[Rfam]
The record is a 76-nucleotide RNA sequence from Flavobacterium noncentrifugens, which matches "Flavo-1 RNA" in Rfam.

RNA sequence: GCCUAGCCCUGAUAGAAGCGGCAUCCUUUUAUGUAACGCAGUGGAAUAAAAGAUAGAGCGGAUAGCAGGAAACAGC
Numbered sequence: 001g002c003c004u005a006g007c008c009c010u011g012a013u014a015g016a017a018g019c020g021g022c023a024u025c026c027u028u029u030u031a032u033g034u035a036a037c038g039c040a041g042u043g044g045a046a047u048a049a050a051a052g053a054u055a056g057a058g059c060g061g062a063u064a065g066c067a068g069g070a071a072a073c074a075g076c
Stems, first nucleotide, its partner, number of pairs: 009068003013064002018059002023054003029049004034044001036042001
The match comes from Rfam's covariance-model search (64 bits). Taxonomically the source falls in Flavobacterium (Bacteria, Pseudomonadati, Flavobacteriia, Flavobacteriales).